[Rfam]
RNA sequence: AAGUGGUUGGACUCCUUCUAAAUUUAGAGUACAAUUAGUAGAUUACAAUUGGCUUAACCCUACUGCACGAACCGAACUUGAUAUAAGUGCGGUAGGGGUAAAUUCUCCGCGUUCGGUGCGG
Numbered sequence: 001a002a003g004u005g006g007u008u009g010g011a012c013u014c015c016u017u018c019u020a021a022a023u024u025u026a027g028a029g030u031a032c033a034a035u036u037a038g039u040a041g042a043u044u045a046c047a048a049u050u051g052g053c054u055u056a057a058c059c060c061u062a063c064u065g066c067a068c069g070a071a072c073c074g075a076a077c078u079u080g081a082u083a084u085a086a087g088u089g090c091g092g093u094a095g096g097g098g099u100a101a102a103u104u105c106u107c108c109g110c111g112u113u114c115g116g117u118g119c120g121g
Stems, first nucleotide, its partner, number of pairs: 025057001027055003032051005038046003058097011071117006107121004